Source information:
Shown here is a 78-nucleotide RNA from Methylobacterium durans, a member of the family "Makes More Granules Regulator RNA (mmgR)". A reference for the family is Corbino et al. (2005), "Evidence for a second class of S-adenosylmethionine riboswitches and other regulatory RNA motifs in alpha-proteobacteria", Genome Biol. The base pairs follow the family's consensus structure. The family's RNA type in Rfam is small RNA. Clan: suhB sRNA clan. About the family: SuhB later renamed mmgR (makes more granules regulator) was a putative non-coding RNA found multiple times in the Agrobacterium tumefaciens genome and related alpha-proteobacteria. Other non-coding RNAs uncovered in the same analysis include: speF, ybhL, metA, and serC.Several studies inSinorhizobium meliloti showed that suhB element is indeed a non-coding RNA:firstly it was detected on Northern blot and called Sm8RNA, secondly in an RNAseq study referred to as SmelC689.The mutant phenotype's (strain lacking the small RNA) cytoplasm contains higher content of polyhydroxybutyrate (PBH)storage granules than wild type strain. The sRNA is required to limit the PBH intracellular accumulation when the nitrogen-fixing Sinorhizobium meliloti is under condition of surplus carbon in relation to nitrogen. It has been renamed to mmgR. Further study confirmed that mmgR fine-tunes the regulation of PBH storage.Northern blot confirmed the expression of the sRNA in other rhizobia species. The match comes from Rfam's covariance-model search (65 bits).
RNA sequence: CGCGUCGGCCCUUCAUUGGGCGUUUCCUCCCUAGACUUACGGGCCGCUCUCACUGGGCGGCCCUUUUUCUGUCCGGGG
Numbered sequence: 001c002g003c004g005u006c007g008g009c010c011c012u013u014c015a016u017u018g019g020g021c022g023u024u025u026c027c028u029c030c031c032u033a034g035a036c037u038u039a040c041g042g043g044c045c046g047c048u049c050u051c052a053c054u055g056g057g058c059g060g061c062c063c064u065u066u067u068u069c070u071g072u073c074c075g076g077g078g
Base pairs, nucleotide, nucleotide: 008021009020010019011018041063042062043061044060045059046058047057048056049055